The record is a 215-nucleotide RNA from Nitrobacter sp. Nb-311A, which matches "permuted transfer-messenger RNA" in Rfam. The family's RNA type in Rfam is non-coding RNA gene.
RNA sequence: GGAAAUAAAUGGCCGCCGCAAUAAACCAUUCGGACCCGGGGGCAGUACCCGGCGCCUCCACCAGAGCCCGACUCGGCAGAUUUGGGUUCUGGCGGGGGCGAAACAGGAUCGACGAGGGCGUAAAGGGCUCGCUUUUUCCCGGUAUGGUUCCGCCGUUAUCGGGCUAUGCAAUAGUUGCAAACGACAACUAUGCUCCGGUUGCUCAGGCUGCGUAA
Numbered sequence: 001g002g003a004a005a006u007a008a009a010u011g012g013c014c015g016c017c018g019c020a021a022u023a024a025a026c027c028a029u030u031c032g033g034a035c036c037c038g039g040g041g042g043c044a045g046u047a048c049c050c051g052g053c054g055c056c057u058c059c060a061c062c063a064g065a066g067c068c069c070g071a072c073u074c075g076g077c078a079g080a081u082u083u084g085g086g087u088u089c090u091g092g093c094g095g096g097g098g099c100g101a102a103a104c105a106g107g108a109u110c111g112a113c114g115a116g117g118g119c120g121u122a123a124a125g126g127g128c129u130c131g132c133u134u135u136u137u138c139c140c141g142g143u144a145u146g147g148u149u150c151c152g153c154c155g156u157u158a159u160c161g162g163g164c165u166a167u168g169c170a171a172u173a174g175u176u177g178c179a180a181a182c183g184a185c186a187a188c189u190a191u192g193c194u195c196c197g198g199u200u201g202c203u204c205a206g207g208c209u210g211c212g213u214a215a
Stems, first nucleotide, its partner, number of pairs: 001139005015128003026118002030115003036052005053100007140155004